[Rfam]
RNA: Metazoan signal recognition particle RNA
Organism: Strigops habroptila
RNA sequence: GCUUCUGAGAAGUGGUGGCGCACGCCUGUAGUCCCAGCUACCCAGGAGGCUGAGCCCGCUGGGUCGCUUGAGCCCAGGAGUUCUGGGCUUCAAUGUGCUAUGCUGAGUAGGCAUCCGCACUAAGGCUGGCAUCACUGUGGUGAGCCCUGGGGAGCCGGAGCAUAGCAGGUUGACUAAGGAGGGGUGAACUGGCCCAGGUUGGAGAUGGAGCAGGUCAAAGCUCCUGUGCUGGUCAGUAGUGGGAUUGCGCCUGCGAAUAGCCACUGCAGUGUAGCCUGGGCAGCACAGAGAGAUGCGGGUUCCU
Numbered sequence: 001g002c003u004u005c006u007g008a009g010a011a012g013u014g015g016u017g018g019c020g021c022a023c024g025c026c027u028g029u030a031g032u033c034c035c036a037g038c039u040a041c042c043c044a045g046g047a048g049g050c051u052g053a054g055c056c057c058g059c060u061g062g063g064u065c066g067c068u069u070g071a072g073c074c075c076a077g078g079a080g081u082u083c084u085g086g087g088c089u090u091c092a093a094u095g096u097g098c099u100a101u102g103c104u105g106a107g108u109a110g111g112c113a114u115c116c117g118c119a120c121u122a123a124g125g126c127u128g129g130c131a132u133c134a135c136u137g138u139g140g141u142g143a144g145c146c147c148u149g150g151g152g153a154g155c156c157g158g159a160g161c162a163u164a165g166c167a168g169g170u171u172g173a174c175u176a177a178g179g180a181g182g183g184g185u186g187a188a189c190u191g192g193c194c195c196a197g198g199u200u201g202g203a204g205a206u207g208g209a210g211c212a213g214g215u216c217a218a219a220g221c222u223c224c225u226g227u228g229c230u231g232g233u234c235a236g237u238a239g240u241g242g243g244a245u246u247g248c249g250c251c252u253g254c255g256a257a258u259a260g261c262c263a264c265u266g267c268a269g270u271g272u273a274g275c276c277u278g279g280g281c282a283g284c285a286c287a288g289a290g291a292g293a294u295g296c297g298g299g300u301u302c303c304u
Stems, first nucleotide, its partner, number of pairs: 001050003008027002012023003032047003052302008064291002067288002072281007083274003087270003091266002094263002097261005103255001107254006114247001115243002118241005124234009133172002136169001138167002141164002144161002147158004174178001180225006190217005199208003